[Rfam]
RNA sequence: UCGGAGUAAAAUAGUGAGUAGCCAACUUGGGGAAGUGAUCAACCAUUGGGAUAAGUUUAAAUCUGUUUUUUUUACUCCAUAAACUUUUUACCGUGGGUAAAAGGAUUCUUGUUGGGGCAUAAAAAAAAACUAGAUUUAAAUUCAGCCCAGAGGUUGGUGAUGUAUUUUCCCCAAGAAGGCUGCUCGCUAUUUUACCCUAA
Numbered sequence: 001u002c003g004g005a006g007u008a009a010a011a012u013a014g015u016g017a018g019u020a021g022c023c024a025a026c027u028u029g030g031g032g033a034a035g036u037g038a039u040c041a042a043c044c045a046u047u048g049g050g051a052u053a054a055g056u057u058u059a060a061a062u063c064u065g066u067u068u069u070u071u072u073u074a075c076u077c078c079a080u081a082a083a084c085u086u087u088u089u090a091c092c093g094u095g096g097g098u099a100a101a102a103g104g105a106u107u108c109u110u111g112u113u114g115g116g117g118c119a120u121a122a123a124a125a126a127a128a129a130c131u132a133g134a135u136u137u138a139a140a141u142u143c144a145g146c147c148c149a150g151a152g153g154u155u156g157g158u159g160a161u162g163u164a165u166u167u168u169c170c171c172c173a174a175g176a177a178g179g180c181u182g183c184u185c186g187c188u189a190u191u192u193u194a195c196c197c198u199a200a
Stems, first nucleotide, its partner, number of pairs: 003198002006195018026175010038161004042154003046150005052144001054142002057139009066129007073119001075117005084104009

MIR2670 microRNA precursor family: a 200-nucleotide RNA sequence from Medicago truncatula. Taxonomically the source falls in Medicago (Eukaryota, Euphyllophyta, eudicotyledons, fabids). The family's consensus secondary structure was predicted with RNAalifold.